[Rfam]
Nucleotides: 055
Base pairs, nucleotide, nucleotide: 001019002018003017004016005015006014007013008012
Number, partner (000 for none) and nucleotide at each position: 001019c002018c003017c004016c005015g006014u007013a008012c009000a010000c011000c012008g013007u014006g015005c016004g017003g018002g019001g020000c021000g022000a023000c024000u025000c026000a027000u028000c029000u030000g031000a032000u033000u034000g035000c036000a037000a038000c039000a040000a041000a042000g043000g044000g045000g046000u047000c048000u049000g050000c051000u052000c053000g054000u055000g
Shown here is a 55-nucleotide RNA from Pseudescherichia vulneris, a member of the family "ClpQY promoter". The pairing is the family consensus, mapped onto this sequence. The family's RNA type in Rfam is cis-regulatory element. For this family Rfam cites "Regulation of clpQ(+)Y(+) (hslV(+)U(+)) gene expression in Escherichia coli" (Lien et al., Open Microbiol J, 2009). Taxonomically the source falls in Pseudescherichia vulneris (Bacteria, Gammaproteobacteria, Enterobacterales, Enterobacteriaceae).